[Rfam]
RNA: Na+ riboswitch aptamer (DUF1646)
Nucleotides: 060
Stems, first nucleotide, its partner, number of pairs: 003030003006025006041060007
Number, partner (000 for none) and nucleotide at each position: 001000g002000g003030u004029u005028g006025g007024a008023c009022g010021a011020a012000u013000u014000c015000u016000a017000a018000c019000a020011u021010u022009c023008g024007u025006u026000u027000u028005c029004a030003a031000g032000a033000u034000g035000a036000a037000u038000u039000u040000a041060g042059g043058c044057u045056u046055u047054u048000g049000g050000g051000g052000u053000g054047g055046g056045a057044a058043g059042c060041u